The family of this 79-nucleotide RNA from Macleaya microcarpa is "Plastid-rpl20 3UTR RNA".
It is one of the family's seed sequences.
Lineage of the source: Eukaryota > Spermatophyta > Ranunculales > Papaveroideae > Macleaya.
Pairs were carried over by alignment from the consensus structure, which was predicted with LocARNA.
From the family's description: Plastid rpl20 is a non-coding RNA (ncRNA) recognised in plastids.
RNA sequence: UCCCCGGAGAAUGAACUCCGGGAAGGUAGAGUAUAAAUUACUAUGAUAAAGUAGUAAAAAUGAACGAACACGUUUCAAU
Numbered sequence: 001u002c003c004c005c006g007g008a009g010a011a012u013g014a015a016c017u018c019c020g021g022g023a024a025g026g027u028a029g030a031g032u033a034u035a036a037a038u039u040a041c042u043a044u045g046a047u048a049a050a051g052u053a054g055u056a057a058a059a060a061u062g063a064a065c066g067a068a069c070a071c072g073u074u075u076c077a078a079u
Stems, first nucleotide, its partner, number of pairs: 001024001003022007062075004